Overview:
Group II catalytic intron D1-D4-4: a 142-nucleotide sequence from Nannocystis pusilla. Its family is annotated with Group II intron splicing in the Gene Ontology. Rfam describes the family as follows. Group II introns are found in rRNA, tRNA and mRNA of organelles in fungi, plants and protists, and also in mRNA in bacteria.
[Rfam]
RNA sequence: CAGCGGGUGAGAGUCCCGCCCGGGUAAGCGCCGGAGCGCCCGGAAGCAGACCCCAGGUCCGAGGAGAGAUCCUCGAGGCCCGAGCGGGGUGUCGAAAGCCUGUCCCUUGCGACAGGGAGCGGAGCUGCGGGCCGCAACGCGU
Numbered sequence: 001c002a003g004c005g006g007g008u009g010a011g012a013g014u015c016c017c018g019c020c021c022g023g024g025u026a027a028g029c030g031c032c033g034g035a036g037c038g039c040c041c042g043g044a045a046g047c048a049g050a051c052c053c054c055a056g057g058u059c060c061g062a063g064g065a066g067a068g069a070u071c072c073u074c075g076a077g078g079c080c081c082g083a084g085c086g087g088g089g090u091g092u093c094g095a096a097a098g099c100c101u102g103u104c105c106c107u108u109g110c111g112a113c114a115g116g117g118a119g120c121g122g123a124g125c126u127g128c129g130g131g132c133c134g135c136a137a138c139g140c141g142u
Stems, first nucleotide, its partner, number of pairs: 020043005050090005056080004064071002099116006119135003
The organism belongs to Nannocystis, within Bacteria. The match comes from Rfam's covariance-model search (76 bits).